[Rfam]
RNA: Histone 3' UTR stem-loop
RNA sequence: CCCCCGGCCCUUUUCAGGGCCACCCACAUUUCCCAAAAAGAACUGU
Numbered sequence: 001c002c003c004c005c006g007g008c009c010c011u012u013u014u015c016a017g018g019g020c021c022a023c024c025c026a027c028a029u030u031u032c033c034c035a036a037a038a039a040g041a042a043c044u045g046u
Base pairs, nucleotide, nucleotide: 006021007020008019009018010017011016